[Rfam]
RNA sequence: CGGCUGUAGCUACAUUCACUUGGAAGUUUUACUGGCCGGUUGUCGUUUUUCAGUCGAUAAAUCUGCUUACCGAACUUCAUACAUAU
Numbered sequence: 001c002g003g004c005u006g007u008a009g010c011u012a013c014a015u016u017c018a019c020u021u022g023g024a025a026g027u028u029u030u031a032c033u034g035g036c037c038g039g040u041u042g043u044c045g046u047u048u049u050u051c052a053g054u055c056g057a058u059a060a061a062u063c064u065g066c067u068u069a070c071c072g073a074a075c076u077u078c079a080u081a082c083a084u085a086u
Stems, first nucleotide, its partner, number of pairs: 023078006034067003038063004042058004
RNA: Small nucleolar RNA snoR109
Organism: Cynara cardunculus